[Rfam]
RNA sequence: AGCCCAAAAGAUCUCGUAAUUUAUUCCUUAACCUUUGCUGUGGAAGGGUCUUUGCUCUUUGUAAACGACUGCUUUAACUCAAUGCU
Numbered sequence: 001a002g003c004c005c006a007a008a009a010g011a012u013c014u015c016g017u018a019a020u021u022u023a024u025u026c027c028u029u030a031a032c033c034u035u036u037g038c039u040g041u042g043g044a045a046g047g048g049u050c051u052u053u054g055c056u057c058u059u060u061g062u063a064a065a066c067g068a069c070u071g072c073u074u075u076a077a078c079u080c081a082a083u084g085c086u
Stems, first nucleotide, its partner, number of pairs: 009079002012076001017063002026054001031049006038042001

Rfam assigns this 86-nucleotide sequence from Chinchilla lanigera to the family "Stem loopII regulatory element in POLB". Pairs were carried over by alignment from the consensus structure, which is taken from published work. For this family Rfam cites "Hairpin structure within the 3'UTR of DNA polymerase beta mRNA acts as a post-transcriptional regulatory element and interacts with Hax-1" (Sarnowska et al., Nucleic Acids Res, 2007).